[Rfam]
RNA sequence: CGGGGUAAUUUGCAGGCACCCCUUUAGACGGGCCACGUCCAAGCUCUGC
Numbered sequence: 001c002g003g004g005g006u007a008a009u010u011u012g013c014a015g016g017c018a019c020c021c022c023u024u025u026a027g028a029c030g031g032g033c034c035a036c037g038u039c040c041a042a043g044c045u046c047u048g049c
Stems, first nucleotide, its partner, number of pairs: 002022005012049005027039004

chrB-b RNA: a 49-nucleotide RNA. The sequence is in the family's curated seed alignment. Rfam classes the family as a cis-regulatory element.